[Rfam]
This 129-nucleotide RNA from Carlito syrichta belongs to the Rfam family "Small nucleolar RNA SNORA51".

RNA sequence: GGCCUCCUGGUGCUUACCACAGGCUGUGUUACACUGACUGUAUAGAAAAAGGAGGCAGAAUAAAUCUACCCUGUGUAUACCUCAGUACAGGCCCUGUGCCUGGCCUGUAUUGUGAAUGGGGGGCCAUGG
Number, nucleotide and partner (000 for none) at each position: 001g000002g056003c055004c054005u053006c052007c051008u050009g000010g000011u000012g000013c000014u000015u000016a000017c000018c000019a000020c040021a039022g038023g000024c000025u000026g034027u033028g032029u000030u000031a000032c028033a027034c026035u000036g000037a000038c022039u021040g020041u000042a000043u000044a000045g000046a000047a000048a000049a000050a008051g007052g006053a005054g004055g003056c002057a000058g000059a000060a000061u000062a000063a000064a000065u000066c000067u000068a000069c121070c120071c119072u118073g117074u116075g000076u000077a000078u000079a000080c000081c000082u000083c107084a106085g105086u000087a000088c102089a101090g100091g099092c098093c000094c000095u000096g000097u000098g092099c091100c090101u089102g088103g000104c000105c085106u084107g083108u000109a000110u000111u000112g000113u000114g000115a000116a074117u073118g072119g071120g070121g069122g000123g000124c000125c000126a000127u000128g000129g000

Annotation:
It is annotated as an H/ACA-box small nucleolar RNA. About the family: ACA51 is a member of the H/ACA class of snoRNA that guide the sites of modification of uridines to pseudouridines. It scores 136 bits against the family's covariance model.